[Rfam]
RNA sequence: CAGCACAAGCGGCCGCUGAGCAAAAAAUGAUCAGACAGCACUGGCAGUGUGCCAAUCCUGGCCAAUACUGGAAGUGUUGGCGCGCUGCCCUCCCCCUGGCGGCACGUCGACAGGGGCGCAAAGGACCAACCGCCCUUGUUUGACUCCUAAUGGUCUUGACCCGGAUUCCCUCCCCCAGAACCCGG
Dot-bracket structure: ............................(((((..........................................((((.((.(.(((..........))).).)).))))(((((((............))))))).............))))).....((((.(((.........))).))))
The family of this 185-nucleotide RNA sequence from Pseudomonas cremoricolorata is "RgsA sRNA". The organism belongs to Pseudomonas, within Bacteria. The family's consensus secondary structure was predicted with RNAalifold. This small RNA (sRNA) was computationally identified in the genome of the opportunistic pathogen Pseudomonas aeruginosa and its expression verified by northern blot analysis. P16 sRNA appears to be conserved across several Pseudomonas species and Azotobacter vinelandii. In these species it is consistently located downstream of a predicted TatD deoxyribonuclease gene. For this family Rfam cites "Identification of 17 Pseudomonas aeruginosa sRNAs and prediction of sRNA-encoding genes in 10 diverse pathogens using the bioinformatic tool sRNAPredict2" (Livny et al., Nucleic Acids Res, 2006).